This 72-nucleotide RNA from Echinococcus granulosus belongs to the Rfam family "tRNA". Taxonomically the source falls in Echinococcus (Eukaryota, Platyhelminthes, Rhabditophora, Neodermata). The family's RNA type in Rfam is transfer RNA. The match comes from Rfam's covariance-model search (49 bits).

RNA sequence: GGGAAUGUAGCUCAGUUUUAGAGCGCUCGUUCUGCAUGCAAGAGGCCCCGGGUUCGACCCCCGGCAUCUCCA
Dot-bracket structure: (((.(((..((((.......)))).((.((.......)).)).....(((((.......)))))))).))).
Source information
The base pairs follow the family's consensus structure, which is taken from published work.